[Rfam]
Notes
This 114-nucleotide RNA from Ameiurus melas belongs to the Rfam family "Potassium channel RNA editing signal". This family represents a group of sequences related to the human potassium channel Kv1.1 hairpin element which directs the efficient modification of an adenosine to inosine by an adenosine deaminase acting on RNA (ADAR). On this family, see Bhalla et al., Nat Struct Mol Biol 2004: "Control of human potassium channel inactivation by editing of a small mRNA hairpin". NCBI's taxonomy places the organism under Eukaryota, Clupeocephala, Otomorpha, Siluriformes, Ameiurus. The family's RNA type in Rfam is cis-regulatory element. The base pairs follow the family's consensus structure, which is taken from published work. The match comes from Rfam's covariance-model search (109 bits).
RNA sequence: GUUGGCUAUGGUGACAUGUGCCCAAUCACCUUGGGGGGUAAGAUGGUGGGAAUCCUCUGUGCCAUCGCUGGAGUGCUGACAAUUGCUCUGCCUGUUCCUGUCAUUGUUUCUAAC
Numbered sequence: 001g002u003u004g005g006c007u008a009u010g011g012u013g014a015c016a017u018g019u020g021c022c023c024a025a026u027c028a029c030c031u032u033g034g035g036g037g038g039u040a041a042g043a044u045g046g047u048g049g050g051a052a053u054c055c056u057c058u059g060u061g062c063c064a065u066c067g068c069u070g071g072a073g074u075g076c077u078g079a080c081a082a083u084u085g086c087u088c089u090g091c092c093u094g095u096u097c098c099u100g101u102c103a104u105u106g107u108u109u110c111u112a113a114c
Base pairs, nucleotide, nucleotide: 001114002113004111005110008107009106010105011104013102014101015100016099018097020095021094037077038076039075040074049063050062